[Rfam]
Rfam assigns this 126-nucleotide RNA from Plantimonas leprariae to the family "Rhizobiales sRNA Atu_C8". Lineage of the source: Bacteria > Pseudomonadota > Alphaproteobacteria > Aurantimonadaceae > Plantimonas. Rfam classes the family as a small RNA. The family's consensus secondary structure was predicted with CMfinder.
RNA sequence: CGUCAUGAUGACGAUUCUUAUUCUCGUACGGGGGCGCACACGCGAGACGGUCUAGGGACCGUCCGGCUUAUGCCACGUGUGCGCUCGAUCCAAAGGCCCCAAGCGGGCCUUUUUUGUUGCCCAAAU
Number, nucleotide and partner (000 for none) at each position: 001c000002g000003u000004c000005a000006u000007g000008a000009u026010g000011a000012c000013g000014a000015u000016u000017c000018u000019u000020a000021u000022u000023c000024u000025c000026g009027u000028a000029c000030g121031g120032g000033g085034g084035c083036g082037c081038a080039c079040a078041c077042g076043c000044g000045a000046g063047a062048c061049g060050g059051u000052c000053u000054a000055g000056g000057g000058a000059c050060c049061g048062u047063c046064c000065g000066g073067c072068u000069u000070a000071u000072g067073c066074c000075a000076c042077g041078u040079g039080u038081g037082c036083g035084c034085u033086c000087g000088a000089u000090c000091c000092a111093a000094a110095g109096g108097c107098c106099c105100c000101a000102a000103g000104c000105g099106g098107g097108c096109c095110u094111u092112u000113u000114u000115u000116g000117u000118u000119g000120c031121c030122c000123a000124a000125a000126u000